[Rfam]
RNA sequence: UUAACGCGGUAUCGAUGGCGGCGACAACGAAAGUUCGCGCCGGGGGCGACCUGGUGACAGGUACAGCAUUUGCUGCAGUCAGUUUUCACUGAUUUGAGACCCCGUAAUACCUCAACAUCUUGCAUUCCCUGAUGCACAGAUACUCGUUA
Numbered sequence: 001u002u003a004a005c006g007c008g009g010u011a012u013c014g015a016u017g018g019c020g021g022c023g024a025c026a027a028c029g030a031a032a033g034u035u036c037g038c039g040c041c042g043g044g045g046g047c048g049a050c051c052u053g054g055u056g057a058c059a060g061g062u063a064c065a066g067c068a069u070u071u072g073c074u075g076c077a078g079u080c081a082g083u084u085u086u087c088a089c090u091g092a093u094u095u096g097a098g099a100c101c102c103c104g105u106a107a108u109a110c111c112u113c114a115a116c117a118u119c120u121u122g123c124a125u126u127c128c129c130u131g132a133u134g135c136a137c138a139g140a141u142a143c144u145c146g147u148u149a
Stems, first nucleotide, its partner, number of pairs: 002149004008144006019042005043103004050061004076096003083088001

A member of the RNA family "EFASI RNA" from Lasius niger, 149 nucleotides long. It is annotated as a small RNA. The match comes from Rfam's covariance-model search (63 bits).